[Rfam]
Nucleotides: 086
Base pairs, nucleotide, nucleotide: 005079006078007077008076009075010074011073012072015035018032019031020030021029022028040057041056042055043054044053045052046051058071059070060069061068
Number, partner (000 for none) and nucleotide at each position: 001000g002000a003000a004000a005079c006078c007077u008076c009075a010074u011073c012072u013000u014000g015035c016000a017000a018032g019031c020030g021029c022028c023000a024000u025000c026000c027000g028022g029021g030020c031019g032018c033000c034000a035015g036000a037000g038000c039000a040057g041056u042055g043054u044053u045052u046051u047000u048000u049000a050000u051046a052045a053044a054043a055042c056041a057040c058071g059070g060069a061068c062000a063000u064000u065000c066000c067000c068061g069060u070059c071058c072012g073011g074010g075009u076008g077007a078006g079005g080000a081000g082000a083000a084000a085000g086000g